The family of this 123-nucleotide sequence from Paenalicyclobacillus mengziensis is "c-di-AMP riboswitch aptamer (ydaO/yuaA leader)". The base pairs follow the family's consensus structure.
RNA sequence: UCAAACAGACCGCCGAAUCAUACUGAACGGGGGACAUCAAUUCCGGGGUGAAGGACAAUUGUCCAGAGCAACCUUUCAGCUCGAACCCGACAACUAACCUCGUAGGCGUGGAAAGGAAGUUUC
Dot-bracket structure: ..........((((...(((...)))((((((....(.......)(((.....(((....)))..((((.........))))...))).........)))))).))))...............